[Rfam]
RNA sequence: ACAACCCGCAAGGCCGACGCAUAACGCGCCGCUGGUGCAAGCCCAGCCGUCCCACAUGGGGCGGGCGCUCAUGGGUACGCA
Dot-bracket structure: ...((((.....(((..(((.....)))..((((.........))))((((((....)))))))))......)))).....
Rfam assigns this 81-nucleotide sequence to the family "Twister_sister_ribozyme". It is one of the family's seed sequences. Pairs were carried over by alignment from the consensus structure, which is taken from published work.